[Rfam]
Singlet oxygen resistance RNA X: a 72-nucleotide RNA sequence from Thalassovita mediterranea. Rfam links the family to the GO term response to photooxidative stress. The match comes from Rfam's covariance-model search (60 bits). SorX (RSs2461)like SorY is a singlet oxygen induced sRNA that counteracts oxidative stress by targeting mRNA for a transporter in Rhodobacter. It also has an impact on resistance against organic hydroperoxides. It targets SD sequence of potA mRNA via an aSD sequence. The aSD sequence and some neighbouring nucleotides are identical to the one of SorY (targets takP mRNA). The family's RNA type in Rfam is small RNA. The pairing is the family consensus, mapped onto this sequence.
RNA sequence: UGCCGCCGCACAGCCGGCUUAUGCUGUGCAACCUCCCUGUUGGACUAGCCCGGGCACUGCCCGGGUUCUUUU
Dot-bracket structure: .......(((((((........)))))))..................((((((((...))))))))......